A member of the RNA family "Repression of heat shock gene expression (ROSE) element" from Stutzerimonas stutzeri, 65 nucleotides long. On this family, see Krajewski et al., PLoS One 2013: "Short ROSE-Like RNA Thermometers Control IbpA Synthesis in Pseudomonas Species".
[Rfam]
RNA sequence: AGCGGGAUGCCGAAGUCGGGUCCCGCCCGUUUCAACUCGCUGAUUUCAGGAGGUUUAUCAUGAGU
Dot-bracket structure: .(((((((.(((....))))))))))....(....(((.(((....)))))))............